This 112-nucleotide sequence from Rhodoplanes roseus belongs to the Rfam family "Rhizobiales sRNA Atu_At1". Pairs were carried over by alignment from the consensus structure, which was predicted with CMfinder. Taxonomically the source falls in Rhodoplanes (Bacteria, Pseudomonadota, Alphaproteobacteria, Hyphomicrobiales). A search with the family's covariance model found it, with a score of 88 bits. The literature on the family includes a 2012 paper in RNA Biol by Wilms et al., "Deep sequencing uncovers numerous small RNAs on all four replicons of the plant pathogen Agrobacterium tumefaciens".

RNA sequence: ACGCACCGGAUGACAACCGGCCGCAACAGGGACGAUGGACGCAGCUAUUUUGCCGGUUUCUUGCUGCGACACCAACGCAUCGGUACGCGUCGGCGUCUAACCUGUUUCCGGU
Numbered sequence: 001a002c003g004c005a006c007c008g009g010a011u012g013a014c015a016a017c018c019g020g021c022c023g024c025a026a027c028a029g030g031g032a033c034g035a036u037g038g039a040c041g042c043a044g045c046u047a048u049u050u051u052g053c054c055g056g057u058u059u060c061u062u063g064c065u066g067c068g069a070c071a072c073c074a075a076c077g078c079a080u081c082g083g084u085a086c087g088c089g090u091c092g093g094c095g096u097c098u099a100a101c102c103u104g105u106u107u108c109c110g111g112u
Base pairs, nucleotide, nucleotide: 006111007110008109009108011023012022014020025106026105027104028103029102030101034097035096036095037094040068041067042066043065044064045063071084072083073082